[Rfam]
RNA: tRNA
Nucleotides: 081
Base pairs, nucleotide, nucleotide: 001080002079003078004077005076006075007074010025011024012023027043028042029041030040031039057073058072059071060070061069
Number, partner (000 for none) and nucleotide at each position: 001080g002079g003078c004077a005076a006075g007074g008000u009000g010025g011024c012023g013000g014000a015000g016000u017000g018000g019000u020000u021000a022000a023012c024011g025010c026000g027043u028042u029041a030040g031039a032000c033000u034000c035000g036000a037000a038000a039031u040030c041029u042028a043027a044000u045000u046000c047000c048000u049000u050000c051000g052000g053000g054000a055000g056000c057073c058072u059071g060070g061069g062000u063000u064000c065000a066000a067000a068000u069061c070060c071059c072058a073057g074007c075006c076005u077004u078003g079002u080001c081000g